[Rfam]
RNA sequence: GCCCUUGUGAAGUCCUACAGAUAGUUACUAUAUUCAGGGUGUCGGCUUCGGCCGUCUAUGGUGCUAAACGGGCUUAUGGAAUAAGCGUUGUGGACCCGGGGGCGGUACCCGGCGCCUCCACCAUUUCUUACAUUCUGAUGAAUGUGAAUUAUGGGGGCGAAACAGGAUCGACACGCGUGGUAAAGAUUUGUUCGGUGCCCGGCAUGGUUCCGCCGUUAUCGGGCCGUUUUGAGUAAUUGCAAAUGACAAUUCUCGUGAGGUAGCUCUCGCUGCUUAAUUGCAGUCUGAGCAACCGCUUUUAAGCCCUGAGCUAUCACAAGCUCAGGCGGGGUUCGGGGGCACCUGGCAACAGAAGCCCCCACU
Dot-bracket structure: ........................................(.(((......))).)...(((((......(((..((........(((.(((...(((((.......)))))(((((((.................................)))))))............))))))........))..)))..)))))[[[[.(((.(((]]]].....))))))......................................................................................................[[[[..((((((]]]]..........))))))...
A member of the RNA family "Alphaproteobacteria transfer-messenger RNA" from Kiloniella litopenaei, 363 nucleotides long. Lineage of the source: Bacteria > Alphaproteobacteria > Rhodospirillales > Kiloniellaceae > Kiloniella. Rfam links the family to the GO term RNA catabolic process. The family is grouped with related families in Rfam's "tRNA clan". A reference for the family is Williams and Bartel (1996), "Phylogenetic analysis of tmRNA secondary structure", RNA. From the family's description: Bacterial tmRNA, also known as 10Sa RNA or SsrA, is named for its dual tRNA and mRNA-like properties. Its role is to liberate the mRNA from a stalled ribosome.